A member of the RNA family "c-di-GMP-I riboswitch aptamer" from Paenibacillus contaminans, 91 nucleotides long. The match comes from Rfam's covariance-model search (77 bits).

RNA sequence: AUACAUAAUGGGCAAACCCAGCGAAAGCUGGGGACGCAAAGCUAUAGGGGCUACAAUGUAUGCGAAUACAUUAUGCCAGCCAGUUGCUGAU
Numbered sequence: 001a002u003a004c005a006u007a008a009u010g011g012g013c014a015a016a017c018c019c020a021g022c023g024a025a026a027g028c029u030g031g032g033g034a035c036g037c038a039a040a041g042c043u044a045u046a047g048g049g050g051c052u053a054c055a056a057u058g059u060a061u062g063c064g065a066a067u068a069c070a071u072u073a074u075g076c077c078a079g080c081c082a083g084u085u086g087c088u089g090a091u
Stems, first nucleotide, its partner, number of pairs: 012037002017032006040085004047081002049077003056071006